[Rfam]
RNA sequence: UGUAAUGACAAGCCGAAUCUCCAUAAAGGAGUACGGGGGAUAUCCAUUGGGGUGAAUCUUUAUUUUAAAGAAGGGUACCUCUUACCCUAACCCGUCAACUAACCUCGGAGGCAAAAGGAGGAAAUUUA
Numbered sequence: 001u002g003u004a005a006u007g008a009c010a011a012g013c014c015g016a017a018u019c020u021c022c023a024u025a026a027a028g029g030a031g032u033a034c035g036g037g038g039g040a041u042a043u044c045c046a047u048u049g050g051g052g053u054g055a056a057u058c059u060u061u062a063u064u065u066u067a068a069a070g071a072a073g074g075g076u077a078c079c080u081c082u083u084a085c086c087c088u089a090a091c092c093c094g095u096c097a098a099c100u101a102a103c104c105u106c107g108g109a110g111g112c113a114a115a116a117g118g119a120g121g122a123a124a125u126u127u128a
Stems, first nucleotide, its partner, number of pairs: 012112003019031004034107005041049002050093003058070004073087004

Shown here is a 128-nucleotide RNA from Clostridiales bacterium oral taxon 876, a member of the family "c-di-AMP riboswitch aptamer (ydaO/yuaA leader)". Its family is annotated with regulation of gene expression and cyclic-di-AMP binding in the Gene Ontology. It scores 84 bits against the family's covariance model.